[Rfam]
RNA: mir-471 microRNA precursor family
RNA sequence: UGCUUUACGUAGUAUAGUGCUUUUCACAUUACACAAAAAGUGAAAGGUGCCAUACUAUGUACAGGA
Numbered sequence: 001u002g003c004u005u006u007a008c009g010u011a012g013u014a015u016a017g018u019g020c021u022u023u024u025c026a027c028a029u030u031a032c033a034c035a036a037a038a039a040g041u042g043a044a045a046g047g048u049g050c051c052a053u054a055c056u057a058u059g060u061a062c063a064g065g066a
Base pairs, nucleotide, nucleotide: 003064004063006061007060008059009058010057011056012055013054014053015052017050018049019048020047021046022045023044024043025042026041027040